[Rfam]
RNA sequence: UAUUUCUUUAAACUGGUCCAGAGAGGCUAGAAAGGUAAACAAAUAUGGAUUCUUUUGAAAAUAAGGGAUACCUAUACCUUCUUGCACCUAUGGCAAGAAGGUUUUUUGUUG
Numbered sequence: 001u002a003u004u005u006c007u008u009u010a011a012a013c014u015g016g017u018c019c020a021g022a023g024a025g026g027c028u029a030g031a032a033a034g035g036u037a038a039a040c041a042a043a044u045a046u047g048g049a050u051u052c053u054u055u056u057g058a059a060a061a062u063a064a065g066g067g068a069u070a071c072c073u074a075u076a077c078c079u080u081c082u083u084g085c086a087c088c089u090a091u092g093g094c095a096a097g098a099a100g101g102u103u104u105u106u107u108g109u110u111g
Base pairs, nucleotide, nucleotide: 003037005035006034007033008032009031013030014029015028016027017026018025048071051068052067053066054065055064056063057062074104076102077101078100079099080098081097082096083095084094085093
A member of the RNA family "PyrR binding site" from Alkalithermobacter paradoxus, 111 nucleotides long.
Pairs were carried over by alignment from the consensus structure, which is taken from published work.
The source organism's lineage runs through Bacteria, Bacillati, Peptostreptococcales, Tepidibacteraceae and Alkalithermobacter.